[Rfam]
RNA sequence: UGCCUAAACCUGGGAGGUUAUCUCCAGGCAUGGCGUAAAAACCCGUCUAAGGCGGAGAGCUCGUCGUCAGAGCACCUUAGACGGGUCACGUCGGGAAACCGGCGUGGGUGGUCACAAGGCCAUC
Numbered sequence: 001u002g003c004c005u006a007a008a009c010c011u012g013g014g015a016g017g018u019u020a021u022c023u024c025c026a027g028g029c030a031u032g033g034c035g036u037a038a039a040a041a042c043c044c045g046u047c048u049a050a051g052g053c054g055g056a057g058a059g060c061u062c063g064u065c066g067u068c069a070g071a072g073c074a075c076c077u078u079a080g081a082c083g084g085g086u087c088a089c090g091u092c093g094g095g096a097a098a099c100c101g102g103c104g105u106g107g108g109u110g111g112u113c114a115c116a117a118g119g120c121c122a123u124c
Stems, first nucleotide, its partner, number of pairs: 001035004009028005014022001042085011059073004087106008107124006
Shown here is a 124-nucleotide RNA, a member of the family "LOOT RNA". By type it is a small RNA.